This 108-nucleotide sequence from Plutella xylostella belongs to the Rfam family "mir-8517 microRNA precursor family".
Gene Ontology terms of the family: miRNA-mediated post-transcriptional gene silencing and RISC complex.
[Rfam]
RNA sequence: UUACUGGACGUUUUAGCUAUUGAACUGUUCUGUCACUCUCUGACAGAGAACAAUUUGUCCUUUGACAGAGAGGGACAAAACAGUUCAAUAGCUAAGGGGUCUAGUUUA
Numbered sequence: 001u002u003a004c005u006g007g008a009c010g011u012u013u014u015a016g017c018u019a020u021u022g023a024a025c026u027g028u029u030c031u032g033u034c035a036c037u038c039u040c041u042g043a044c045a046g047a048g049a050a051c052a053a054u055u056u057g058u059c060c061u062u063u064g065a066c067a068g069a070g071a072g073g074g075a076c077a078a079a080a081c082a083g084u085u086c087a088a089u090a091g092c093u094a095a096g097g098g099g100u101c102u103a104g105u106u107u108a
Stems, first nucleotide, its partner, number of pairs: 003105004011097018029069007050058003